[Rfam]
Rfam assigns this 129-nucleotide sequence from Phyllostomus discolor to the family "Small nucleolar RNA SNORA63". The family's RNA type in Rfam is H/ACA-box small nucleolar RNA. The source organism's lineage runs through Eukaryota, Metazoa, Deuterostomia, Chordata and Phyllostomus. It scores 113 bits against the family's covariance model.

RNA sequence: AAGCAGGAUUCAAACUACAAUAUAGCUAAGUGCUAUGUUGUCAUUACUCCUGCUCAAAAUAAAGUUGUUUCUUAACUAUAGUUGUCUGCUAUACUCCUGUAACAGCCAGGGGUAUUUGGUCUCAUACAU
Numbered sequence: 001a002a003g004c005a006g007g008a009u010u011c012a013a014a015c016u017a018c019a020a021u022a023u024a025g026c027u028a029a030g031u032g033c034u035a036u037g038u039u040g041u042c043a044u045u046a047c048u049c050c051u052g053c054u055c056a057a058a059a060u061a062a063a064g065u066u067g068u069u070u071c072u073u074a075a076c077u078a079u080a081g082u083u084g085u086c087u088g089c090u091a092u093a094c095u096c097c098u099g100u101a102a103c104a105g106c107c108a109g110g111g112g113u114a115u116u117u118g119g120u121c122u123c124a125u126a127c128a129u
Stems, first nucleotide, its partner, number of pairs: 003053005017041010082109003086105003